The family of this 143-nucleotide sequence from Cicer arietinum is "Small nucleolar RNA snoR138". The family has 7 seed sequences and 308 matches in Rfam 15.1. Pairs were carried over by alignment from the consensus structure, which was predicted with mfold. Rfam classes the family as an H/ACA-box small nucleolar RNA. Its family is annotated with nucleolus and RNA processing in the Gene Ontology. A reference for the family is Chen and Wu (2009), "Mining small RNA sequencing data: a new approach to identify small nucleolar RNAs in Arabidopsis", Nucleic Acids Res.
RNA sequence: AAUGCCUUCGAAUAACUAAACAAUCAUACAAUGUUGUUUAGUUCAGACAGAGGCAAAUAUCAAUUAUUAUUAUAUAUCUGAAUUUGUUUGAGGGUGUGGAAUUUUUUUAAUACCGUUCCAUUCCUAGAUAUAUUCGGAUAUUC
Numbered sequence: 001a002a003u004g005c006c007u008u009c010g011a012a013u014a015a016c017u018a019a020a021c022a023a024u025c026a027u028a029c030a031a032u033g034u035u036g037u038u039u040a041g042u043u044c045a046g047a048c049a050g051a052g053g054c055a056a057a058u059a060u061c062a063a064u065u066a067u068u069a070u071u072a073u074a075u076a077u078c079u080g081a082a083u084u085u086g087u088u089u090g091a092g093g094g095u096g097u098g099g100a101a102u103u104u105u106u107u108u109a110a111u112a113c114c115g116u117u118c119c120a121u122u123c124c125u126a127g128a129u130a131u132a133u134u135c136g137g138a139u140a141u142u143c
Base pairs, nucleotide, nucleotide: 003055004054005053006052007051008050014043015042016041017040018039019038020037021036023034024033079136080135081134082133083132090121092119094118097115098114099113101111102110